[Rfam]
RNA sequence: CCACGUCCCGACGCACCAUCCCCCCGGCGCCGGGACUUUCCCCGAGCCGGGCUUCGGCGCCUUCCCCCGGGCGCCGGGGCCCGGCUCGCCC
Numbered sequence: 001c002c003a004c005g006u007c008c009c010g011a012c013g014c015a016c017c018a019u020c021c022c023c024c025c026g027g028c029g030c031c032g033g034g035a036c037u038u039u040c041c042c043c044g045a046g047c048c049g050g051g052c053u054u055c056g057g058c059g060c061c062u063u064c065c066c067c068c069g070g071g072c073g074c075c076g077g078g079g080c081c082c083g084g085c086u087c088g089c090c091c
Stems, first nucleotide, its partner, number of pairs: 005036006012029003044087010055076008
RNA: Streptomyces RNA 3202
Organism: Streptomyces sp. DSM 15324